[Rfam]
RNA: Small nucleolar RNA SNORA48
RNA sequence: AACUCCUGGCAAUGAGCAAAGAGACACCCUGUUAGUGUUGGUGUUCUUAUAUCAGUCAGGAGCAGAGCAGAUGGCAGUCCUUUGUUCAUCCUAGCUUGAUGCCUGGCCCAGUGGCAAAAGCUGUUUCAUGCCUAAGGCACAUUU
Numbered sequence: 001a002a003c004u005c006c007u008g009g010c011a012a013u014g015a016g017c018a019a020a021g022a023g024a025c026a027c028c029c030u031g032u033u034a035g036u037g038u039u040g041g042u043g044u045u046c047u048u049a050u051a052u053c054a055g056u057c058a059g060g061a062g063c064a065g066a067g068c069a070g071a072u073g074g075c076a077g078u079c080c081u082u083u084g085u086u087c088a089u090c091c092u093a094g095c096u097u098g099a100u101g102c103c104u105g106g107c108c109c110a111g112u113g114g115c116a117a118a119a120g121c122u123g124u125u126u127c128a129u130g131c132c133u134a135a136g137g138c139a140c141a142u143u144u
Base pairs, nucleotide, nucleotide: 003062004061005060006059007058008057013054014053015052019048020047021046023042025040026039028037083139084138085137086136098132100130104128105127106126109123110122112120